[Rfam]
RNA sequence: CUGGUACCGGUUCACGCCAGCACAGGACCACGGCGACCCGGCGACC
Numbered sequence: 001c002u003g004g005u006a007c008c009g010g011u012u013c014a015c016g017c018c019a020g021c022a023c024a025g026g027a028c029c030a031c032g033g034c035g036a037c038c039c040g041g042c043g044a045c046c
Stems, first nucleotide, its partner, number of pairs: 003046003007041004015035004020028001
RNA: L31-Actinobacteria ribosomal protein leader